[Rfam]
A member of the RNA family "Small nucleolar RNA SNORA74" from Bos taurus, 200 nucleotides long. From the family's description: U19 belongs to the H/ACA class of snoRNAs. snoRNAs bind a number of proteins (including dyskerin, Gar1p and Nop10p in the case of the H/ACA class) to form snoRNP complexes. Lineage of the source: Eukaryota > Vertebrata > Dipnotetrapodomorpha > Ruminantia > Bos.
RNA sequence: UCCAGCAGUUGUCAGCUAUCCAGGCUAGCGUGAUGCCUCAGAUGGUGUUACACUGUUGGAAGAGCAAGCACUGCCUUUAUUGAGGUCUGACUUCAGCACUGUUUUGGUGUUGUGGCUGAGUACCUCUGGGCAGUGUUUUGCACCUCUGAGAGUGGAGUAACUCCUCCUGUGGAGUUGGUCCUAGUCUGGGUGCAAACAGU
Numbered sequence: 001u002c003c004a005g006c007a008g009u010u011g012u013c014a015g016c017u018a019u020c021c022a023g024g025c026u027a028g029c030g031u032g033a034u035g036c037c038u039c040a041g042a043u044g045g046u047g048u049u050a051c052a053c054u055g056u057u058g059g060a061a062g063a064g065c066a067a068g069c070a071c072u073g074c075c076u077u078u079a080u081u082g083a084g085g086u087c088u089g090a091c092u093u094c095a096g097c098a099c100u101g102u103u104u105u106g107g108u109g110u111u112g113u114g115g116c117u118g119a120g121u122a123c124c125u126c127u128g129g130g131c132a133g134u135g136u137u138u139u140g141c142a143c144c145u146c147u148g149a150g151a152g153u154g155g156a157g158u159a160a161c162u163c164c165u166c167c168u169g170u171g172g173a174g175u176u177g178g179u180c181c182u183a184g185u186c187u188g189g190g191u192g193c194a195a196a197c198a199g200u
Base pairs, nucleotide, nucleotide: 001060002059003058004057005056006055007054008053009052011051012050015046016045017044018043019042020041022038023037024036025035068136069135070134071133072132073131074130075129076128082126083125084124085123086122088118089117091115092114094112095111097109098108099107100106138195139194140193141192142191143190144189145188154181155180156179158177159176160175161174162173163172164171

It is annotated as an H/ACA-box small nucleolar RNA.
Rfam 15.1 lists 1,348 matches to the family in 628 species.